The record is a 103-nucleotide sequence from Prunus armeniaca, which matches "MIR6274 microRNA precursor family" in Rfam. The source organism's lineage runs through Eukaryota, Magnoliopsida, eudicotyledons, rosids and Prunus.

Nucleotides: 103
Base pairs, nucleotide, nucleotide: 002102003101004100005099012093013092014091015090016089017088018087019086020085021084022083023082024081025080026079027078028077029076030075031074033072034071035070036069037068038067039066040065041064042063044061045060046059048057049056
Number, partner (000 for none) and nucleotide at each position: 001000g002102g003101a004100u005099a006000a007000c008000a009000u010000u011000g012093u013092u014091u015090u016089g017088u018087u019086a020085u021084c022083c023082c024081g025080g026079c027078c028077a029076a030075u031074a032000a033072u034071g035070c036069a037068a038067u039066g040065a041064c042063a043000c044061g045060u046059g047000a048057a049056a050000a051000a052000g053000u054000u055000a056049u057048u058000c059046c060045g061044c062000u063042u064041g065040u066039c067038a068037u069036u070035g071034c072033g073000c074031u075030a076029u077028u078027g079026g080025c081024c082023g083022g084021g085020a086019u087018a088017g089016c090015a091014a092013a093012a094000a095000g096000u097000g098000u099005u100004a101003u102002c103000c